A member of the RNA family "mir-9256 microRNA precursor family" from Cnephaeus nilssonii, 67 nucleotides long.
The base pairs follow the family's consensus structure, which was predicted with RNAalifold.
Rfam links the family to the GO terms RISC complex and miRNA-mediated post-transcriptional gene silencing.
The source organism's lineage runs through Eukaryota, Deuterostomia, Euteleostomi, Chiroptera and Cnephaeus.
RNA sequence: AUGUGCACUGAGUGGCCAGAUUGUUUUGAUCUCUGAAUGCACAAUAAUCUGGCCACUCAGUGUAUAU
Numbered sequence: 001a002u003g004u005g006c007a008c009u010g011a012g013u014g015g016c017c018a019g020a021u022u023g024u025u026u027u028g029a030u031c032u033c034u035g036a037a038u039g040c041a042c043a044a045u046a047a048u049c050u051g052g053c054c055a056c057u058c059a060g061u062g063u064a065u066a067u
Stems, first nucleotide, its partner, number of pairs: 004064014019049007027041002